[Rfam]
RNA sequence: CUUUGUAUUCUUCCACAGCUUUCUUGAACUGCAUCUGUUAGAAUCGAUUGUUGAUUGUUGUCACACAAAAUUCAUUGCUUUGCGGUUCAAUAAAGCUGUGGGAAGAUACAGACA
Numbered sequence: 001c002u003u004u005g006u007a008u009u010c011u012u013c014c015a016c017a018g019c020u021u022u023c024u025u026g027a028a029c030u031g032c033a034u035c036u037g038u039u040a041g042a043a044u045c046g047a048u049u050g051u052u053g054a055u056u057g058u059u060g061u062c063a064c065a066c067a068a069a070a071u072u073c074a075u076u077g078c079u080u081u082g083c084g085g086u087u088c089a090a091u092a093a094a095g096c097u098g099u100g101g102g103a104a105g106a107u108a109c110a111g112a113c114a
Stems, first nucleotide, its partner, number of pairs: 003111005013101003017097006024090004029085005

MIR396 microRNA precursor family: a 114-nucleotide RNA from Tripterygium wilfordii.
The family's consensus secondary structure was predicted with WAR.
Gene Ontology terms of the family: RISC complex and miRNA-mediated post-transcriptional gene silencing.
The organism belongs to Tripterygium, within Eukaryota.